[Rfam]
RNA sequence: CCUGUUGUUGGGUCAACGGUAGCCUAGGGAUAGUGCAUCGCUGGUAACGGCGUUGUGCGAAGCUUCCUGACAAUGUAGUCCUGUGAUUACGGCAUGUGCUUGCCGUGAGGUAAUGAGUUGCAGUGAUCAAGUAAAACUGGCCAAGCCUUU
Numbered sequence: 001c002c003u004g005u006u007g008u009u010g011g012g013u014c015a016a017c018g019g020u021a022g023c024c025u026a027g028g029g030a031u032a033g034u035g036c037a038u039c040g041c042u043g044g045u046a047a048c049g050g051c052g053u054u055g056u057g058c059g060a061a062g063c064u065u066c067c068u069g070a071c072a073a074u075g076u077a078g079u080c081c082u083g084u085g086a087u088u089a090c091g092g093c094a095u096g097u098g099c100u101u102g103c104c105g106u107g108a109g110g111u112a113a114u115g116a117g118u119u120g121c122a123g124u125g126a127u128c129a130a131g132u133a134a135a136a137c138u139g140g141c142c143a144a145g146c147c148u149u150u
Stems, first nucleotide, its partner, number of pairs: 002019006027068004033058005039052005082092001093120002103110002124143002127140003